Small nucleolar RNA U2-19: a 90-nucleotide RNA from Carlito syrichta. Pairs were carried over by alignment from the consensus structure, which is taken from published work. Rfam links the family to the GO terms RNA processing and nucleolus. The family has 29 seed sequences and 1,147 matches in Rfam 15.1. For this family Rfam cites "Guide RNAs with 5' Caps and Novel Box C/D snoRNA-like Domains for Modification of snRNAs in Metazoa" (Tycowski et al., Curr Biol, 2004).
RNA sequence: GAUCAAUGAUGAAAACAGCCAAAUCUGAGCAUCAGAAGACUUUCUGAGUGCAGAAAAUCUGCCUGAUGCAUGAUCUCCACUGUUUUGAGA
Number, nucleotide and partner (000 for none) at each position: 001g000002a000003u000004c000005a000006a000007u000008g000009a000010u000011g000012a000013a000014a000015a000016c000017a000018g000019c000020c000021a000022a000023a000024u000025c000026u000027g000028a000029g069030c068031a067032u066033c065034a000035g000036a000037a060038g059039a058040c000041u000042u000043u000044c000045u000046g000047a000048g000049u000050g000051c000052a000053g000054a000055a000056a000057a000058u039059c038060u037061g000062c000063c000064u000065g033066a032067u031068g030069c029070a000071u000072g000073a000074u000075c000076u000077c000078c000079a000080c000081u000082g000083u000084u000085u000086u000087g000088a000089g000090a000